Rfam assigns this 83-nucleotide sequence from Podarcis lilfordi to the family "Small nucleolar RNA SNORD45". A reference for the family is Galardi et al. (2002), "Purified box C/D snoRNPs are able to reproduce site-specific 2'-O-methylation of target RNA in vitro", Mol Cell Biol. Taxonomically the source falls in Podarcis (Eukaryota, Deuterostomia, Chordata, Lepidosauria). Rfam 15.1 lists 1,629 matches to the family in 521 species. A search with the family's covariance model found it, with a score of 44 bits.

RNA sequence: GGUCUGUGAUGAUUUUUGGUAUAUAUCUGAUAGUAAAGUUGAUGUCUGUCACCACUUUAGCUCUAGAAUUACUCUGAGAUCUG
Dot-bracket structure: ((((.........................................................................))))..